[Rfam]
RNA sequence: GCCACCGUGAUGGGAGAACCGGCCUUGCCGGUGCCGAAGGAGCAACCGCCCCCGGAAACUCUCAGGCCAAAGGACCUUCACGGCAGA
Numbered sequence: 001g002c003c004a005c006c007g008u009g010a011u012g013g014g015a016g017a018a019c020c021g022g023c024c025u026u027g028c029c030g031g032u033g034c035c036g037a038a039g040g041a042g043c044a045a046c047c048g049c050c051c052c053c054g055g056a057a058a059c060u061c062u063c064a065g066g067c068c069a070a071a072g073g074a075c076c077u078u079c080a081c082g083g084c085a086g087a
Stems, first nucleotide, its partner, number of pairs: 006082005012076002019031004033067003036063002040061003046054001
RNA: Glycine riboswitch aptamer
Organism: Salipiger sp. CCB-MM3